[Rfam]
RNA: Iron response element II
RNA sequence: GUACAAUCUGCUGCAGUGACGGCAAUUGUAC
Numbered sequence: 001g002u003a004c005a006a007u008c009u010g011c012u013g014c015a016g017u018g019a020c021g022g023c024a025a026u027u028g029u030a031c
Stems, first nucleotide, its partner, number of pairs: 001031007009024005014018001